RNA sequence: CCUGUUGUUUCGUCAACAGUAGCCUAUGGGAACGUGCGAUAUUAAGUAAUGAAUUCGUGCGAUAACAGAACCAACAAUGAAGCCCUUCCGAGAGGAGGAGUCGGAACCGUGAGGGGAUGACAACUGUCGUUAGUAUCGAAUGGCAGGGGAG
Numbered sequence: 001c002c003u004g005u006u007g008u009u010u011c012g013u014c015a016a017c018a019g020u021a022g023c024c025u026a027u028g029g030g031a032a033c034g035u036g037c038g039a040u041a042u043u044a045a046g047u048a049a050u051g052a053a054u055u056c057g058u059g060c061g062a063u064a065a066c067a068g069a070a071c072c073a074a075c076a077a078u079g080a081a082g083c084c085c086u087u088c089c090g091a092g093a094g095g096a097g098g099a100g101u102c103g104g105a106a107c108c109g110u111g112a113g114g115g116g117a118u119g120a121c122a123a124c125u126g127u128c129g130u131u132a133g134u135a136u137c138g139a140a141u142g143g144c145a146g147g148g149g150a151g
Stems, first nucleotide, its partner, number of pairs: 002019006028071001033061007042052003085098005100121004107114002126144006

This 151-nucleotide RNA sequence from Dysgonomonas hofstadii belongs to the Rfam family "Group II catalytic intron D1-D4-7". Taxonomically the source falls in Dysgonomonas (Bacteria, Pseudomonadati, Bacteroidota, Dysgonomonadaceae). The family has 244 seed sequences and 1,296 matches in Rfam 15.1. Rfam's curators write: Group II introns are found in rRNA, tRNA and mRNA of organelles in fungi, plants and protists, and also in mRNA in bacteria. Gene Ontology term of the family: Group II intron splicing.